[Rfam]
RNA sequence: UUAACAUGUGCGCGAGUCAUUGGGCUUACGAAACCUAAAGGCGAAAUGAAAGUGAAGGAACGAGUUUACUUGUUCUCAGGGGUGAUGGCCGCGCUACCAUGCCGACCCGCAACCCCGGGGCGUCACAUUCUCUUUGAGAAGUGGUGCACCUUGAGCGUACAUGUUGGUACCCGAAAGAUGGUGACCUAUGCCUGGCCAGGGUGAAGCCAGGGGAAACCUGGUGGAGGCCCGCAGCAAUUCUGACGUGCAAAUCGAUUGUCAGAGCUGGGUAUAGGGGCGAAAGACUAAUCGAACCAUCUAGUAGCUGGUU
Numbered sequence: 001u002u003a004a005c006a007u008g009u010g011c012g013c014g015a016g017u018c019a020u021u022g023g024g025c026u027u028a029c030g031a032a033a034c035c036u037a038a039a040g041g042c043g044a045a046a047u048g049a050a051a052g053u054g055a056a057g058g059a060a061c062g063a064g065u066u067u068a069c070u071u072g073u074u075c076u077c078a079g080g081g082g083u084g085a086u087g088g089c090c091g092c093g094c095u096a097c098c099a100u101g102c103c104g105a106c107c108c109g110c111a112a113c114c115c116c117g118g119g120g121c122g123u124c125a126c127a128u129u130c131u132c133u134u135u136g137a138g139a140a141g142u143g144g145u146g147c148a149c150c151u152u153g154a155g156c157g158u159a160c161a162u163g164u165u166g167g168u169a170c171c172c173g174a175a176a177g178a179u180g181g182u183g184a185c186c187u188a189u190g191c192c193u194g195g196c197c198a199g200g201g202u203g204a205a206g207c208c209a210g211g212g213g214a215a216a217c218c219u220g221g222u223g224g225a226g227g228c229c230c231g232c233a234g235c236a237a238u239u240c241u242g243a244c245g246u247g248c249a250a251a252u253c254g255a256u257u258g259u260c261a262g263a264g265c266u267g268g269g270u271a272u273a274g275g276g277g278c279g280a281a282a283g284a285c286u287a288a289u290c291g292a293a294c295c296a297u298c299u300a301g302u303a304g305c306u307g308g309u310u
Base pairs, nucleotide, nucleotide: 001167002166003165004164005163006162007161008160009159010158011157012156013155016042017041018040021037022036023035024034026032046053047052079116080115081114082113083112087107088106118150119149120147121146122145123144124143125142129137130136170308171307173305177298178297179296180295181294182293186274187273188272189271190270191269192268193267194266195265196264197262199230200229201228202227206222207221208220209219210218212217234259235258236257237256239255240254242253243252276286277285
Eukaryotic large subunit ribosomal RNA: a 310-nucleotide part of an RNA from Thrips palmi. NCBI's taxonomy places the organism under Eukaryota, Eumetazoa, Allotriocarida, Eumetabola, Thrips. A search with the family's covariance model found it, with a score of 2076 bits.